[Rfam]
RNA: Eukaryotic large subunit ribosomal RNA, nucleotides 1864 to 2353
Organism: Verticillium dahliae
RNA sequence: UAGAAUAAUAUAGAUAAGGGAAAUCGGUAAAAUAGAUCUAUAACUUCGGGAAAAGGAUUAGCUCUAAGGAUCGGGCGUAUUAGGCCUUAAAUAGACGGUUUAAUAGUAGGAGGUUACUAGCUAGGUAAUUAGCUAGAGGCUCCCUACUACUUAGCUUAACGCUCUUAGUAGGCUUCGGCCGUCUAGUACGUAUUUAACGAUUAACUUAGAACUAGCGCGGAUAGGGGGAAUCUAACUAUCUAAUUAAAAUAUAGUAUUAUAAUAGCUAGAAAGUAGUAUUAACGUAAUAUAAUUUCUACCUAAUACUCUAAAUAUUAAAGUAAAGUAAUUUAAUUAAAUACGGGUAAAUAGUAGGAAUAACUAUAACUCUCUUAAAGUAGCUAAAUACCUUAUUAUCUAAUUAAUAAUAUAUAUAAAUAGAUUAACGAGAUUCCUACUAUCCCUAUCUACUAUUUAGCGAAAUUUUAGCUAAGGGAACGGGCUUAAUAGA
Dot-bracket structure: ((((......((((((.(((..............(((((....(....).....)))))((.(((((((((((.((((((((((((....(.....((((.(.(((((((.((((.((((((((....)))))))).)))).))))))).).)))).........)....))).........)))))))))......)))))..)))))).))............((((((((...(((.........)))..(((((((....((((.....))))......)))))))...((..((...((((((....(((.....((((....)))).....))).))))..)).)).(((.(.......).))).(...)...............(((((.......)))))...........)).....).)))))))....))).))))))...)))).............((((........)))).....
Numbered sequence: 001u002a003g004a005a006u007a008a009u010a011u012a013g014a015u016a017a018g019g020g021a022a023a024u025c026g027g028u029a030a031a032a033u034a035g036a037u038c039u040a041u042a043a044c045u046u047c048g049g050g051a052a053a054a055g056g057a058u059u060a061g062c063u064c065u066a067a068g069g070a071u072c073g074g075g076c077g078u079a080u081u082a083g084g085c086c087u088u089a090a091a092u093a094g095a096c097g098g099u100u101u102a103a104u105a106g107u108a109g110g111a112g113g114u115u116a117c118u119a120g121c122u123a124g125g126u127a128a129u130u131a132g133c134u135a136g137a138g139g140c141u142c143c144c145u146a147c148u149a150c151u152u153a154g155c156u157u158a159a160c161g162c163u164c165u166u167a168g169u170a171g172g173c174u175u176c177g178g179c180c181g182u183c184u185a186g187u188a189c190g191u192a193u194u195u196a197a198c199g200a201u202u203a204a205c206u207u208a209g210a211a212c213u214a215g216c217g218c219g220g221a222u223a224g225g226g227g228g229a230a231u232c233u234a235a236c237u238a239u240c241u242a243a244u245u246a247a248a249a250u251a252u253a254g255u256a257u258u259a260u261a262a263u264a265g266c267u268a269g270a271a272a273g274u275a276g277u278a279u280u281a282a283c284g285u286a287a288u289a290u291a292a293u294u295u296c297u298a299c300c301u302a303a304u305a306c307u308c309u310a311a312a313u314a315u316u317a318a319a320g321u322a323a324a325g326u327a328a329u330u331u332a333a334u335u336a337a338a339u340a341c342g343g344g345u346a347a348a349u350a351g352u353a354g355g356a357a358u359a360a361c362u363a364u365a366a367c368u369c370u371c372u373u374a375a376a377g378u379a380g381c382u383a384a385a386u387a388c389c390u391u392a393u394u395a396u397c398u399a400a401u402u403a404a405u406a407a408u409a410u411a412u413a414u415a416a417a418u419a420g421a422u423u424a425a426c427g428a429g430a431u432u433c434c435u436a437c438u439a440u441c442c443c444u445a446u447c448u449a450c451u452a453u454u455u456a457g458c459g460a461a462a463u464u465u466u467a468g469c470u471a472a473g474g475g476a477a478c479g480g481g482c483u484u485a486a487u488a489g490a
Stems, first nucleotide, its partner, number of pairs: 001456004011449006018442003035059005044049001060213002063210006069202005075191009084173003091166001097156004102151001104149007112141004117136008226435007233427001237251003254290007265277004294421002298352002303349002305345004313340003321332004354370003358366001372376001392408005470485004